A member of the RNA family "Small nucleolar RNA SNORA79" from Aquarana catesbeiana, 147 nucleotides long. ACA65 (SNORA79) is a member of the H/ACA class of snoRNAs that guide the sites of modification of uridines to pseudouridines. This snoRNA was identified by computational screening and its expression in mouse experimentally verified by Northern blot and primer extension analysis. It is annotated as an H/ACA-box small nucleolar RNA. Pairs were carried over by alignment from the consensus structure, which was predicted with RNAalifold.
RNA sequence: UGACAUCUGUUCCUCGCAUAGCCCCAAGACAUGGGCUAUGAGAUUUUAGGUUGUCGCAGAUUAAUAAUUAAUUUUUUCACUCAGGGGUGUGUAAUGGUGGGUUGGCUGCCUCUCCACACUUUCUGAAUUUUGCGGGGUAAGACAACA
Numbered sequence: 001u002g003a004c005a006u007c008u009g010u011u012c013c014u015c016g017c018a019u020a021g022c023c024c025c026a027a028g029a030c031a032u033g034g035g036c037u038a039u040g041a042g043a044u045u046u047u048a049g050g051u052u053g054u055c056g057c058a059g060a061u062u063a064a065u066a067a068u069u070a071a072u073u074u075u076u077u078c079a080c081u082c083a084g085g086g087g088u089g090u091g092u093a094a095u096g097g098u099g100g101g102u103u104g105g106c107u108g109c110c111u112c113u114c115c116a117c118a119c120u121u122u123c124u125g126a127a128u129u130u131u132g133c134g135g136g137g138u139a140a141g142a143c144a145a146c147a
Stems, first nucleotide, its partner, number of pairs: 001056005007050002014043002017040002020037004069139002072136003081126005087119005096110004